[Rfam]
RNA: Bacterial RNase P class A
Organism: Gelidibacter salicanalis
RNA sequence: CAAGUAAAUCGCCUUAUCGCUGAAUGUUCAAUUUAAUUGGACAAUUGGAGGAAAGUCCGAACACCGUAGUGCAACAUAAUGGUUAAUGGCCAUCGGUCGUGAGAUCAGGAAAAGUGCAACAGAAAGUAUGUACAGGUCAUGCUGUAGUGAAACCAGGUAAACUCUAUGUGGUGCAAUGUCAUGUAAACCAACGCUGCUUGCUCGCUGUUUGUUUUUAACAGAUAGUGGCAGGCGAGAGGGCGGCACGCUCGAUUGUUGGAGGGUAGACAGCUAAAGUGUGCUGGCAACAGUACACUCAGAUAAAUGAUAAGGGUCGCGGCUCGAUAAUUAUCGGGAACGUGAUACAGAAUUCGGCUUAUAGAUUUACUUAAACA
Numbered sequence: 001c002a003a004g005u006a007a008a009u010c011g012c013c014u015u016a017u018c019g020c021u022g023a024a025u026g027u028u029c030a031a032u033u034u035a036a037u038u039g040g041a042c043a044a045u046u047g048g049a050g051g052a053a054a055g056u057c058c059g060a061a062c063a064c065c066g067u068a069g070u071g072c073a074a075c076a077u078a079a080u081g082g083u084u085a086a087u088g089g090c091c092a093u094c095g096g097u098c099g100u101g102a103g104a105u106c107a108g109g110a111a112a113a114g115u116g117c118a119a120c121a122g123a124a125a126g127u128a129u130g131u132a133c134a135g136g137u138c139a140u141g142c143u144g145u146a147g148u149g150a151a152a153c154c155a156g157g158u159a160a161a162c163u164c165u166a167u168g169u170g171g172u173g174c175a176a177u178g179u180c181a182u183g184u185a186a187a188c189c190a191a192c193g194c195u196g197c198u199u200g201c202u203c204g205c206u207g208u209u210u211g212u213u214u215u216u217a218a219c220a221g222a223u224a225g226u227g228g229c230a231g232g233c234g235a236g237a238g239g240g241c242g243g244c245a246c247g248c249u250c251g252a253u254u255g256u257u258g259g260a261g262g263g264u265a266g267a268c269a270g271c272u273a274a275a276g277u278g279u280g281c282u283g284g285c286a287a288c289a290g291u292a293c294a295c296u297c298a299g300a301u302a303a304a305u306g307a308u309a310a311g312g313g314u315c316g317c318g319g320c321u322c323g324a325u326a327a328u329u330a331u332c333g334g335g336a337a338c339g340u341g342a343u344a345c346a347g348a349a350u351u352c353g354g355c356u357u358a359u360a361g362a363u364u365u366a367c368u369u370a371a372a373c374a
Base pairs, nucleotide, nucleotide: 002369003368004367005366006365007364008363009362010361011359012312013311014310015309016308017307018306020048021047022046023045025043026042027041028040029039030038053357054356055355057354058353059352060351061350062173063172064171065170069246070245071244072243074169075168076167077166078165079093080092081091082090083089094108095106096105097104098103109164110163114162115161116158117157177269178268179267180266188259189258190257191256192255238250239249240248241247276295277294278293279292280291281290282289283288